[Rfam]
RNA sequence: CUACCCCCUCCAUCCCAUAAUAUAAAAGCGUUUUUGACAAUAUAGUAGUGUAAAAAACGCUCUUAUAUUAUGGGACGGAGGGAGUAC
Numbered sequence: 001c002u003a004c005c006c007c008c009u010c011c012a013u014c015c016c017a018u019a020a021u022a023u024a025a026a027a028g029c030g031u032u033u034u035u036g037a038c039a040a041u042a043u044a045g046u047a048g049u050g051u052a053a054a055a056a057a058c059g060c061u062c063u064u065a066u067a068u069u070a071u072g073g074g075a076c077g078g079a080g081g082g083a084g085u086a087c
Stems, first nucleotide, its partner, number of pairs: 003085002007081005013075005019069007027061009037051003041047001